[Rfam]
RNA sequence: AGUCAAUGAUGUUUUAAAGAGUAGUGGACAGAUGUGAUAUCUGAAUAAUUUCACACUGAGACU
Dot-bracket structure: ((((.......................................................))))
Small nucleolar RNA SNORD75: a 63-nucleotide RNA from Perca flavescens. NCBI's taxonomy places the organism under Eukaryota, Bilateria, Vertebrata, Eurypterygia, Perca. Rfam links the family to the GO terms RNA processing and nucleolus. The base pairs follow the family's consensus structure, which was predicted with RNAalifold.